[Rfam]
RNA sequence: AUUUUUUAAGGGAAUGAAGUUCUCCCGUGGGAAACCUAAACCGCAUUUAUGCUGAUGACUUCUGCAAAAAU
Numbered sequence: 001a002u003u004u005u006u007u008a009a010g011g012g013a014a015u016g017a018a019g020u021u022c023u024c025c026c027g028u029g030g031g032a033a034a035c036c037u038a039a040a041c042c043g044c045a046u047u048u049a050u051g052c053u054g055a056u057g058a059c060u061u062c063u064g065c066a067a068a069a070a071u
Stems, first nucleotide, its partner, number of pairs: 010026004016062006043052003